[Rfam]
Notes
Rfam assigns this 306-nucleotide RNA from Vitis vinifera to the family "Plant signal recognition particle RNA". Rfam 15.1 lists 4,988 matches to the family in 266 species. Rfam's curators put it in the seed alignment. NCBI's taxonomy places the organism under Eukaryota, Spermatophyta, Mesangiospermae, Pentapetalae, Vitis. It is annotated as a non-coding RNA gene.
RNA sequence: GCCGAGUUCAGUCGCGGGAACUUGUAACCCAAGUGGGGGCAUUAAGGUGGGCGGAUGUUGGUUCGGUUGAGCAGGUAGGGCCUGAUGGGGUUAAAUGCUGGCCUGCCCGUUCCAAGUUGGGAGAUGAGUCUCGACAUCCGGGCGAAGGCCUGGGUGGCGUGGCUCCUAGAGUUGGAGGAAACCGCGUGAGGCUGGUUUCACAGAGCAGCGUCCACCUCCCGCUCCCGUCGGUGGAAGGAUAACUGGCCGGUGCUCCACAGGUCCAACAACGCCUCCUGAGCCGCUCACAAUCUGACAUCCACCUUU
Numbered sequence: 001g002c003c004g005a006g007u008u009c010a011g012u013c014g015c016g017g018g019a020a021c022u023u024g025u026a027a028c029c030c031a032a033g034u035g036g037g038g039g040c041a042u043u044a045a046g047g048u049g050g051g052c053g054g055a056u057g058u059u060g061g062u063u064c065g066g067u068u069g070a071g072c073a074g075g076u077a078g079g080g081c082c083u084g085a086u087g088g089g090g091u092u093a094a095a096u097g098c099u100g101g102c103c104u105g106c107c108c109g110u111u112c113c114a115a116g117u118u119g120g121g122a123g124a125u126g127a128g129u130c131u132c133g134a135c136a137u138c139c140g141g142g143c144g145a146a147g148g149c150c151u152g153g154g155u156g157g158c159g160u161g162g163c164u165c166c167u168a169g170a171g172u173u174g175g176a177g178g179a180a181a182c183c184g185c186g187u188g189a190g191g192c193u194g195g196u197u198u199c200a201c202a203g204a205g206c207a208g209c210g211u212c213c214a215c216c217u218c219c220c221g222c223u224c225c226c227g228u229c230g231g232u233g234g235a236a237g238g239a240u241a242a243c244u245g246g247c248c249g250g251u252g253c254u255c256c257a258c259a260g261g262u263c264c265a266a267c268a269a270c271g272c273c274u275c276c277u278g279a280g281c282c283g284c285u286c287a288c289a290a291u292c293u294g295a296c297a298u299c300c301a302c303c304u305u306u
Stems, first nucleotide, its partner, number of pairs: 001040003004023006028037003044305008053296001057292001058290003061286001064283003068279001070277002073274004078264007087256004092252002098250006105243001107238002110236005116229001118227006126165005132159002135156009166171001174219005184211004192203003
Dot-bracket structure: (((((((((........))))))....(((....))))))...((((((((.(...(((((..(((.(.((.((((.(((((((..((((.((....((((((.(.((.(((((.(.((((((..(((((.((.(((((((((....))))))))).)).)))))(....)..(((((.....((((....(((......)))....))))...)))))..)))))).)..)))))))....).)))))))))))).)))))))......)))).)).).)))..).))).)...).)))))))).